The record is a 93-nucleotide sequence from Lentibacillus kapialis, which matches "Guanidine-I riboswitch aptamer" in Rfam. It scores 76 bits against the family's covariance model. The organism belongs to Lentibacillus, within Bacteria. The family has 100 seed sequences and 1,509 matches in Rfam 15.1.
[Rfam]
RNA sequence: UAAAAGGUUUUCUAGGGUUCCGCAGUGGAAGCUGGCCUGGUCCAAGAGAAAACGCACGGAAUGUGUACACGGCGGGGAAAAAGCCCGGGAGGA
Numbered sequence: 001u002a003a004a005a006g007g008u009u010u011u012c013u014a015g016g017g018u019u020c021c022g023c024a025g026u027g028g029a030a031g032c033u034g035g036c037c038u039g040g041u042c043c044a045a046g047a048g049a050a051a052a053c054g055c056a057c058g059g060a061a062u063g064u065g066u067a068c069a070c071g072g073c074g075g076g077g078a079a080a081a082a083g084c085c086c087g088g089g090a091g092g093a
Base pairs, nucleotide, nucleotide: 007053008052009051010050011049012048015043016042020040021039022037023034024033025032026031054066055065056064057063058062068088070091074086075085076084